[Rfam]
RNA sequence: UUCUGAAAAAGGCAAACUCAUUGAAAGGUGAGGACGCAAAAUCACAGGUCUAAUGUUGGUGGUACAUCAACAAUGACGGCUGGGUUACCGGG
Numbered sequence: 001u002u003c004u005g006a007a008a009a010a011g012g013c014a015a016a017c018u019c020a021u022u023g024a025a026a027g028g029u030g031a032g033g034a035c036g037c038a039a040a041a042u043c044a045c046a047g048g049u050c051u052a053a054u055g056u057u058g059g060u061g062g063u064a065c066a067u068c069a070a071c072a073a074u075g076a077c078g079g080c081u082g083g084g085u086u087a088c089c090g091g092g
Stems, first nucleotide, its partner, number of pairs: 012037002017032006040086004045082003048077003055071007
Dot-bracket structure: ...........((...((((((....))))))...))..((((.((((((....(((((((...)))))))...)))..)))))))......